[Rfam]
RNA: L2-Alphaproteobacteria ribosomal protein leader
Organism: Yoonia litorea
RNA sequence: GGGGACCUUCGGGGCCCUUUACCACAUAGCCCCGGAUCAGGUCCGGGGCGCCUAAGCAAACGGAAGAAGCUA
Numbered sequence: 001g002g003g004g005a006c007c008u009u010c011g012g013g014g015c016c017c018u019u020u021a022c023c024a025c026a027u028a029g030c031c032c033c034g035g036a037u038c039a040g041g042u043c044c045g046g047g048g049c050g051c052c053u054a055a056g057c058a059a060a061c062g063g064a065a066g067a068a069g070c071u072a
Stems, first nucleotide, its partner, number of pairs: 001018004006014003029049007